RNA sequence: UGUCGGAAUAUCUGCUAAAAUUCCGCAUUUUCCGCACCGGGUUUCCGCACCGGGACACUCGGGGCGUAUGUUCAAUUUGUCGGAAUGGAGUUUUUAGGGAUAUGGGGUUGAAAAA
Numbered sequence: 001u002g003u004c005g006g007a008a009u010a011u012c013u014g015c016u017a018a019a020a021u022u023c024c025g026c027a028u029u030u031u032c033c034g035c036a037c038c039g040g041g042u043u044u045c046c047g048c049a050c051c052g053g054g055a056c057a058c059u060c061g062g063g064g065c066g067u068a069u070g071u072u073c074a075a076u077u078u079g080u081c082g083g084a085a086u087g088g089a090g091u092u093u094u095u096a097g098g099g100a101u102a103u104g105g106g107g108u109u110g111a112a113a114a115a
Base pairs, nucleotide, nucleotide: 003106004105008103009102010101011100012099013098015097016096017095018094019092020091021090022089023088024087025086046066047065048064050062051061052060053059054058071084072083073082